[Rfam]
RNA sequence: UCUGGAUCUAUGAUGUGACAAAUCUGCGUUAUCUUUCAGUAAAUUCCAUUUGAAUUAUGGAUUUGUUGACAAAUACUAAUUUACUGAGAUCCAAU
Numbered sequence: 001u002c003u004g005g006a007u008c009u010a011u012g013a014u015g016u017g018a019c020a021a022a023u024c025u026g027c028g029u030u031a032u033c034u035u036u037c038a039g040u041a042a043a044u045u046c047c048a049u050u051u052g053a054a055u056u057a058u059g060g061a062u063u064u065g066u067u068g069a070c071a072a073a074u075a076c077u078a079a080u081u082u083a084c085u086g087a088g089a090u091c092c093a094a095u
Stems, first nucleotide, its partner, number of pairs: 003093007